[Rfam]
Rfam assigns this 278-nucleotide RNA from Pseudogymnoascus sp. VKM F-3775 to the family "A. fumigatus sRNA Afu_309". The source organism's lineage runs through Eukaryota, leotiomyceta, Thelebolales, Thelebolaceae and Pseudogymnoascus. On this family, see Jochl et al., Nucleic Acids Res 2008: "Small ncRNA transcriptome analysis from Aspergillus fumigatus suggests a novel mechanism for regulation of protein synthesis". Pairs were carried over by alignment from the consensus structure, which was predicted with WAR.
RNA sequence: UUCUCACCACAUACUCGUGAAUGGCUUGACACCAGCAUCGCCUCCGGGCGCAUAAUGGAGUCGCUGUUCAGUUUGACUUCAAGGAGCCAUCAAAUCCCCAUGAUGUCAAUUAUCUAGUCAACGGGUCUGAGAUCGAUUAAGCACCUGCAAACCUCGAUGUUUUGAGCCCUUCAAGGGAGCUCGACGGAGAGAUGGGUGUCUUAAGUCACUAUAUUCCAAAUCUUUUCGCAGAUGCCGUCGGCUUAUGAUGCUAAAGACUCACCAUGGUGAAUACAGAC
Numbered sequence: 001u002u003c004u005c006a007c008c009a010c011a012u013a014c015u016c017g018u019g020a021a022u023g024g025c026u027u028g029a030c031a032c033c034a035g036c037a038u039c040g041c042c043u044c045c046g047g048g049c050g051c052a053u054a055a056u057g058g059a060g061u062c063g064c065u066g067u068u069c070a071g072u073u074u075g076a077c078u079u080c081a082a083g084g085a086g087c088c089a090u091c092a093a094a095u096c097c098c099c100a101u102g103a104u105g106u107c108a109a110u111u112a113u114c115u116a117g118u119c120a121a122c123g124g125g126u127c128u129g130a131g132a133u134c135g136a137u138u139a140a141g142c143a144c145c146u147g148c149a150a151a152c153c154u155c156g157a158u159g160u161u162u163u164g165a166g167c168c169c170u171u172c173a174a175g176g177g178a179g180c181u182c183g184a185c186g187g188a189g190a191g192a193u194g195g196g197u198g199u200c201u202u203a204a205g206u207c208a209c210u211a212u213a214u215u216c217c218a219a220a221u222c223u224u225u226u227c228g229c230a231g232a233u234g235c236c237g238u239c240g241g242c243u244u245a246u247g248a249u250g251c252u253a254a255a256g257a258c259u260c261a262c263c264a265u266g267g268u269g270a271a272u273a274c275a276g277a278c
Stems, first nucleotide, its partner, number of pairs: 011128001013126006019069006028062003032058002037053001039050004074120005083107002086104001088102001140199001142198006158186002162184006168177002206270007221257005228251003234242003